Rfam assigns this 217-nucleotide RNA sequence from Streptomyces sp. ISL-12 to the family "Streptomyces RNA 1601". The pairing is the family consensus, mapped onto this sequence. Rfam describes the family as follows. Identified by deep sequencing of transcriptome at the end of exponential growth phase. The source organism's lineage runs through Bacteria, Actinomycetota, Actinomycetes, Streptomycetaceae and Streptomyces. A search with the family's covariance model found it, with a score of 180 bits.
Nucleotides: 217
Stems, first nucleotide, its partner, number of pairs: 004104006012040002041097005046074002049071004053066002076091006106134003110130001112126006144210006150202003157198003160194001162192003166188005
Number, partner (000 for none) and nucleotide at each position: 001000a002000a003000c004104g005103a006102c007101c008100g009099g010000u011000c012040g013039g014000a015000c016000a017000c018000g019000u020000a021000u022000g023000c024000c025000u026000c027000a028000c029000g030000g031000c032000g033000a034000c035000g036000c037000g038000a039013c040012c041097g042096a043095c044094c045093u046074c047073a048000a049071g050070u051069g052068g053066a054065g055000g056000c057000c058000a059000u060000u061000c062000g063000a064000a065054c066053u067000c068052c069051c070050a071049c072000c073047u074046g075000a076091c077090c078089g079088u080087c081086c082000c083000c084000c085000g086081g087080g088079a089078c090077g091076g092000c093045g094044g095043g096042u097041c098000a099009c100008c101007g102006g103005u104004c105000a106134g107133g108132c109000g110130g111000u112126c113125c114124c115123g116122u117121c118000c119000a120000c121117g122116a123115c124114g125113g126112g127000g128000a129000c130110c131000a132108g133107c134106c135000c136000g137000a138000a139000a140000g141000c142000g143000c144210g145209c146208c147207c148206c149205g150202c151201g152200a153000u154000c155000a156000u157198c158197g159196c160194g161000a162192c163191g164190g165000u166188g167187c168186u169185c170184c171000g172000g173000u174000a175000g176000c177000a178000g179000u180000u181000c182000g183000a184170g185169g186168a187167g188166c189000c190164c191163c192162g193000c194160c195000u196159g197158u198157g199000a200152u201151c202150g203000u204000c205149c206148g207147g208146g209145g210144c211000a212000u213000u214000u215000u216000u217000c